[Rfam]
RNA: Ribosomal protein L20 leader
RNA sequence: UGAGAAAAGCAGAAGUGAGAGCUUCUCGCCUUGCGACUAACGUUGUCUGGCUCUACGGAUUAAGUUUCAGUGAUGGAAUAAAUCAUGUAGGACGGAUUUGCGUUGCAAGUCCGUUCUUGUUUUUCUCU
Numbered sequence: 001u002g003a004g005a006a007a008a009g010c011a012g013a014a015g016u017g018a019g020a021g022c023u024u025c026u027c028g029c030c031u032u033g034c035g036a037c038u039a040a041c042g043u044u045g046u047c048u049g050g051c052u053c054u055a056c057g058g059a060u061u062a063a064g065u066u067u068c069a070g071u072g073a074u075g076g077a078a079u080a081a082a083u084c085a086u087g088u089a090g091g092a093c094g095g096a097u098u099u100g101c102g103u104u105g106c107a108a109g110u111c112c113g114u115u116c117u118u119g120u121u122u123u124u125c126u127c128u
Stems, first nucleotide, its partner, number of pairs: 011026006028051003033046005091115010